The family of this 117-nucleotide RNA sequence from Fervidibacillus halotolerans is "epsC RNA". NCBI's taxonomy places the organism under Bacteria, Bacillati, Bacillota, Caryophanales, Fervidibacillus.
[Rfam]
RNA sequence: CGGUAAUGUCUCCUCACCGUUAUCAAAGGAGGCACUCGGCCAUCCUGUGGGCGGGGCAACCCCUAGCCUUAGACAUGUAUUGUCGAUGGGGUGGUGUGAGGGUGGGUUAGAUGCCCA
Numbered sequence: 001c002g003g004u005a006a007u008g009u010c011u012c013c014u015c016a017c018c019g020u021u022a023u024c025a026a027a028g029g030a031g032g033c034a035c036u037c038g039g040c041c042a043u044c045c046u047g048u049g050g051g052c053g054g055g056g057c058a059a060c061c062c063c064u065a066g067c068c069u070u071a072g073a074c075a076u077g078u079a080u081u082g083u084c085g086a087u088g089g090g091g092u093g094g095u096g097u098g099a100g101g102g103u104g105g106g107u108u109a110g111a112u113g114c115c116c117a
Stems, first nucleotide, its partner, number of pairs: 001019004007034007035100004039095008049069004054064003072084004103117005

The match comes from Rfam's covariance-model search (114 bits). The family's RNA type in Rfam is cis-regulatory element. The family has 30 seed sequences and 450 matches in Rfam 15.1.